[Rfam]
RNA: mir-399 microRNA precursor family
Organism: Raphanus sativus
RNA sequence: AAAAGAAUUACCGGACAAAUCUCCUUUGGCAGAGAGCUCACCACAAACAUAUAUAUGCAUAUGUAAGACUGAAGUAAUAGAUUCCUGCCAAAGGAGAUCUUGCCCUGUAAUGCAUUU
Numbered sequence: 001a002a003a004a005g006a007a008u009u010a011c012c013g014g015a016c017a018a019a020u021c022u023c024c025u026u027u028g029g030c031a032g033a034g035a036g037c038u039c040a041c042c043a044c045a046a047a048c049a050u051a052u053a054u055a056u057g058c059a060u061a062u063g064u065a066a067g068a069c070u071g072a073a074g075u076a077a078u079a080g081a082u083u084c085c086u087g088c089c090a091a092a093g094g095a096g097a098u099c100u101u102g103c104c105c106u107g108u109a110a111u112g113c114a115u116u117u
Stems, first nucleotide, its partner, number of pairs: 005113001007111003011107001013105002016102003019098001021096004027090006034084002